[Rfam]
RNA sequence: GCUCUUUGACAUAUUGUGUAAGACGCUAUUAAAUGAUGCUUGAAUAAUAAUAAAGUGAUUAACCAAUAGCUUGUAGCCCUAGACUCAUUGUGCUAGGGGCUUGGGGCUGACUUACAUUGAAGUCGGCACAUCGUGGAGCGACACCACCUGCAAGCAC
Number, nucleotide and partner (000 for none) at each position: 001g000002c000003u000004c000005u000006u000007u000008g000009a000010c000011a000012u000013a000014u000015u000016g000017u000018g000019u000020a000021a000022g000023a000024c000025g000026c000027u000028a000029u000030u000031a000032a000033a000034u000035g000036a000037u000038g000039c000040u000041u000042g000043a000044a000045u000046a000047a000048u000049a000050a000051u000052a000053a000054a000055g000056u000057g000058a000059u000060u000061a000062a000063c000064c000065a000066a000067u000068a000069g155070c154071u153072u152073g151074u150075a149076g148077c098078c097079c096080u095081a094082g093083a000084c000085u000086c000087a000088u000089u000090g000091u000092g000093c082094u081095a080096g079097g078098g077099g000100c000101u000102u000103g000104g000105g000106g127107c126108u125109g124110a123111c122112u121113u120114a000115c000116a000117u000118u000119g000120a113121a112122g111123u110124c109125g108126g107127c106128a000129c000130a000131u000132c000133g147134u146135g145136g144137a000138g000139c000140g000141a000142c000143a000144c136145c135146a134147c133148c076149u075150g074151c073152a072153a071154g070155c069156a000157c000
RNA: DUF2693 RNA